Rfam assigns this 241-nucleotide RNA sequence from Necator americanus to the family "Nuclear RNase P".
By type it is a ribozyme.
From the family's description: Ribonuclease P (RNase P) is a ubiquitous endoribonuclease, found in archaea, bacteria and eukarya as well as chloroplasts and mitochondria.
[Rfam]
RNA sequence: GUUUUCCGGAAGAAGGCGUGGGGGGUGACCCACAGGUCCACGUGACCUCCAGUCCCCCGGGAAGGUCUGAGAUGAGGUCAUGCUCGGUUUCGGAUGAGCAUCGGGUCUGAGAAGGACCUCAUUCGUGAGAAUGAGAGGCUGUAACAGAAAUGUCCCCCGCGGGGUUUGAAAACAGUCUCGAUCGGCAGUGCCUGAGUGCGAUCGCCCAAUGUAACACAAUUCAGACUAGUCUUCGGAAAAC
Numbered sequence: 001g002u003u004u005u006c007c008g009g010a011a012g013a014a015g016g017c018g019u020g021g022g023g024g025g026u027g028a029c030c031c032a033c034a035g036g037u038c039c040a041c042g043u044g045a046c047c048u049c050c051a052g053u054c055c056c057c058c059g060g061g062a063a064g065g066u067c068u069g070a071g072a073u074g075a076g077g078u079c080a081u082g083c084u085c086g087g088u089u090u091c092g093g094a095u096g097a098g099c100a101u102c103g104g105g106u107c108u109g110a111g112a113a114g115g116a117c118c119u120c121a122u123u124c125g126u127g128a129g130a131a132u133g134a135g136a137g138g139c140u141g142u143a144a145c146a147g148a149a150a151u152g153u154c155c156c157c158c159g160c161g162g163g164g165u166u167u168g169a170a171a172a173c174a175g176u177c178u179c180g181a182u183c184g185g186c187a188g189u190g191c192c193u194g195a196g197u198g199c200g201a202u203c204g205c206c207c208a209a210u211g212u213a214a215c216a217c218a219a220u221u222c223a224g225a226c227u228a229g230u231c232u233u234c235g236g237a238a239a240a241c
Stems, first nucleotide, its partner, number of pairs: 001241004008234003015207002021058005034048005067224005076183004104118005119134006135179007154164003